[Rfam]
RNA sequence: AGGAAGGCUUCCAGGGCGGCGACGCUUGGGGGGCCUUUUUCUUUUGC
Numbered sequence: 001a002g003g004a005a006g007g008c009u010u011c012c013a014g015g016g017c018g019g020c021g022a023c024g025c026u027u028g029g030g031g032g033g034c035c036u037u038u039u040u041c042u043u044u045u046g047c
Base pairs, nucleotide, nucleotide: 005036006035007034008033009032010031011030012029015026016025017024018023

The family of this 47-nucleotide sequence from Agrobacterium albertimagni is "ctRNA".
A search with the family's covariance model found it, with a score of 64 bits.
For this family Rfam cites "Two discrete elements are required for the replication of a repABC plasmid: an antisense RNA and a stem-loop structure" (Venkova-Canova et al., Mol Microbiol, 2004).
This family represents a group of ctRNAs (or counter-transcribed RNAs) from p42d and related plasmids. ctRNAs are small, highly structured, antisense sequences which are involved in negative regulation.
It is annotated as an antisense RNA.